RNA sequence: CUCAUGGGGAAUGCGGUCUCCCCACGGGGGGACAGGCCGAAGCAUCGCGUCCCGCACUUCGCCAAGGACGCCCCAUG
Dot-bracket structure: ....((((((........))))))......................((((((.............))))))......
RNA: chrB-a RNA